Rfam assigns this 339-nucleotide RNA sequence from Solobacterium moorei to the family "Bacterial RNase P class B". The family's RNA type in Rfam is ribozyme.

RNA sequence: UACAUGAGGCAGUCGCUGGCACCUAUGGUGUUAGAGGAAAGUCCAUGCUCGCACCAUCUGCGAUGAUGGUAGUGUUUGUGCCGGCCCAAUUAAUAAGACCGGGUAUCGAAAGAUAACGGCGGAGCGAGAACCUAAAACUUCGGUCAUGGUUUAAGCCCUUAAGGUGUCACAGUGACGUAGCCGAUAGGGAAACCUAUCGGGUGGAACGAGAUAAACCCCGCAAGCGAGAAACUCAAAUUUGGUAGAGGAACUGCAGAAGGCGAACUGAAGCGUGAUGCAGGUGUGAAAGCACAGAUAAAUGGCUGCCCCUGGAAACAGGACAGAACAUGGCUUACAAUU
Numbered sequence: 001u002a003c004a005u006g007a008g009g010c011a012g013u014c015g016c017u018g019g020c021a022c023c024u025a026u027g028g029u030g031u032u033a034g035a036g037g038a039a040a041g042u043c044c045a046u047g048c049u050c051g052c053a054c055c056a057u058c059u060g061c062g063a064u065g066a067u068g069g070u071a072g073u074g075u076u077u078g079u080g081c082c083g084g085c086c087c088a089a090u091u092a093a094u095a096a097g098a099c100c101g102g103g104u105a106u107c108g109a110a111a112g113a114u115a116a117c118g119g120c121g122g123a124g125c126g127a128g129a130a131c132c133u134a135a136a137a138c139u140u141c142g143g144u145c146a147u148g149g150u151u152u153a154a155g156c157c158c159u160u161a162a163g164g165u166g167u168c169a170c171a172g173u174g175a176c177g178u179a180g181c182c183g184a185u186a187g188g189g190a191a192a193c194c195u196a197u198c199g200g201g202u203g204g205a206a207c208g209a210g211a212u213a214a215a216c217c218c219c220g221c222a223a224g225c226g227a228g229a230a231a232c233u234c235a236a237a238u239u240u241g242g243u244a245g246a247g248g249a250a251c252u253g254c255a256g257a258a259g260g261c262g263a264a265c266u267g268a269a270g271c272g273u274g275a276u277g278c279a280g281g282u283g284u285g286a287a288a289g290c291a292c293a294g295a296u297a298a299a300u301g302g303c304u305g306c307c308c309c310u311g312g313a314a315a316c317a318g319g320a321c322a323g324a325a326c327a328u329g330g331c332u333u334a335c336a337a338u339u
Base pairs, nucleotide, nucleotide: 004338005337006335008307009306010305011304012303013302014301016034017033018032019031020030021029039333040332041331043330044329045328046327047326048228049227050226051225052224053070054069055068056067057066058065076223077222078221079220080219081102082101083100084099086097103117104115105114106113107112118218119217121158122157129151130150131149132148137144138143164216165215166212167211168210181200182199183198184197185196186195187194188193232247233246234245251280252279253278254277255276281292282291283290284289309318310317311316